[Rfam]
RNA sequence: CCCCCAAGGGGAAGCGAAGACCCUAUAGAGCUUUACUGCAGGCUGUCGCUGGGACGUGGUCGCUACUGUGCAGUGUAGGUAGGAGCUGUUACACAGGUACCCGCGCUAGCGGGCCACCGAGGCAUCCAUGAAACACUACCCGGUAGUGACUGCGACCCUCACUCCUGGCGGAGGACACCGGUAGCCGGGCAGUUUGACUGGGGCGGUACGCGCUUGAAAAGAUAUCGAGCGCGCCCCAAGUCCAUCUCAGCCGUGUCGGAAACGCGGCGAAGAGUGCAAAAGCAAAAGAUGGACUGACAGUGAUCUUCCCAACGAGGAUCGCUGACGUGAAAGCGUGGUUUAGCGAACCAAUUCGCCCGCUCGAUGCGGGCCAUUGCUGACAGAAAAGCUACCUUAGGGAUAACAGAGUCGUCACUCGCAAGAGUACAUAUCGACCGAGUGGCUUGCUACCUCGAUGUCGGUUCCCUCCAUCCUGCCCGUGCAGAAGCGGGCAAGGGUGAGGUUGUUCGCCUAUUAAAGGAGGUCGUGAGCUGGGUUUAGACCGUCGCGAGACAGGUCGGCUGCUAUCUAUUGGGGGUGUCAU
Numbered sequence: 001c002c003c004c005c006a007a008g009g010g011g012a013a014g015c016g017a018a019g020a021c022c023c024u025a026u027a028g029a030g031c032u033u034u035a036c037u038g039c040a041g042g043c044u045g046u047c048g049c050u051g052g053g054a055c056g057u058g059g060u061c062g063c064u065a066c067u068g069u070g071c072a073g074u075g076u077a078g079g080u081a082g083g084a085g086c087u088g089u090u091a092c093a094c095a096g097g098u099a100c101c102c103g104c105g106c107u108a109g110c111g112g113g114c115c116a117c118c119g120a121g122g123c124a125u126c127c128a129u130g131a132a133a134c135a136c137u138a139c140c141c142g143g144u145a146g147u148g149a150c151u152g153c154g155a156c157c158c159u160c161a162c163u164c165c166u167g168g169c170g171g172a173g174g175a176c177a178c179c180g181g182u183a184g185c186c187g188g189g190c191a192g193u194u195u196g197a198c199u200g201g202g203g204c205g206g207u208a209c210g211c212g213c214u215u216g217a218a219a220a221g222a223u224a225u226c227g228a229g230c231g232c233g234c235c236c237c238a239a240g241u242c243c244a245u246c247u248c249a250g251c252c253g254u255g256u257c258g259g260a261a262a263c264g265c266g267g268c269g270a271a272g273a274g275u276g277c278a279a280a281a282g283c284a285a286a287a288g289a290u291g292g293a294c295u296g297a298c299a300g301u302g303a304u305c306u307u308c309c310c311a312a313c314g315a316g317g318a319u320c321g322c323u324g325a326c327g328u329g330a331a332a333g334c335g336u337g338g339u340u341u342a343g344c345g346a347a348c349c350a351a352u353u354c355g356c357c358c359g360c361u362c363g364a365u366g367c368g369g370g371c372c373a374u375u376g377c378u379g380a381c382a383g384a385a386a387a388g389c390u391a392c393c394u395u396a397g398g399g400a401u402a403a404c405a406g407a408g409u410c411g412u413c414a415c416u417c418g419c420a421a422g423a424g425u426a427c428a429u430a431u432c433g434a435c436c437g438a439g440u441g442g443c444u445u446g447c448u449a450c451c452u453c454g455a456u457g458u459c460g461g462u463u464c465c466c467u468c469c470a471u472c473c474u475g476c477c478c479g480u481g482c483a484g485a486a487g488c489g490g491g492c493a494a495g496g497g498u499g500a501g502g503u504u505g506u507u508c509g510c511c512u513a514u515u516a517a518a519g520g521a522g523g524u525c526g527u528g529a530g531c532u533g534g535g536u537u538u539a540g541a542c543c544g545u546c547g548c549g550a551g552a553c554a555g556g557u558c559g560g561c562u563g564c565u566a567u568c569u570a571u572u573g574g575g576g577g578u579g580u581c582a583u
Stems, first nucleotide, its partner, number of pairs: 001577007010569003014564002022398004027394002029390005035193004042185007051158003055154014078140005085123003100113005162173004196209001197207003210232006235338002241293006247273002250268006274283002298324009326335001328333001349376004355371005407448003411445001412442007422432002459534001460532004464526001465523005472497002476491005500512004540558004544553003
Dot-bracket structure: (((((((..(((.((......((((.(((((((.((((...(((((((..(((.((((((((((((((.........(((((..(((............(((((....))))).......)))............))))))))))))))))))).)))...((((....)))).....)))))))....))))..((((.....))).)((((((...........))))))..((....((((((((.((((((.......))))))...))((......))....))))))....(((((((((.........))))))))).(.(....).).))..........((((..(((((.......))))).)))).........)))))..))))))........(((.((((((((...((.......))...)))))))..))))..........(((((((((((..((..(((((......)))))....))..((((.....))))......)))))..)..)))).).....(((((((....))).))))....))..))).)))))))......
Background
Rfam assigns this 583-nucleotide part of an RNA from Halosimplex carlsbadense to the family "Archaeal large subunit ribosomal RNA". The base pairs follow the family's consensus structure, which is taken from published work. The sequence is in the family's curated seed alignment. Lineage of the source: Archaea > Halobacteria > Halobacteriales > Haloarculaceae > Halosimplex.